[Rfam]
The family of this 122-nucleotide RNA from Peptostreptococcus anaerobius is "STnc490 Hfq binding RNA". The base pairs follow the family's consensus structure, which was predicted with WAR.
RNA sequence: AAACCCCAGUUAGACUGGGAGUUCAGUGUAGCUUAAGCGUUGAGAAACUAUCAAAAAAUCAUCCUUUUUGUAUAAUAUUAUUGUGGUCUGGCAACUACAAAAAUAUUUAACAUAAGGAGGGU
Number, nucleotide and partner (000 for none) at each position: 001a023002a022003a000004c000005c019006c018007c017008a016009g015010u014011u000012a000013g000014a010015c009016u008017g007018g006019g005020a000021g000022u002023u001024c000025a000026g000027u000028g041029u000030a000031g038032c037033u000034u000035a000036a000037g032038c031039g000040u000041u028042g000043a000044g000045a000046a000047a000048c000049u000050a000051u000052c000053a000054a000055a000056a000057a000058a000059u000060c000061a122062u121063c120064c119065u118066u117067u116068u115069u114070g000071u109072a108073u000074a000075a000076u105077a104078u103079u102080a000081u100082u099083g098084u097085g096086g095087u094088c000089u000090g000091g000092c000093a000094a087095c086096u085097a084098c083099a082100a081101a000102a079103a078104u077105a076106u000107u000108u072109a071110a000111c000112a000113u000114a069115a068116g067117g066118a065119g064120g063121g062122u061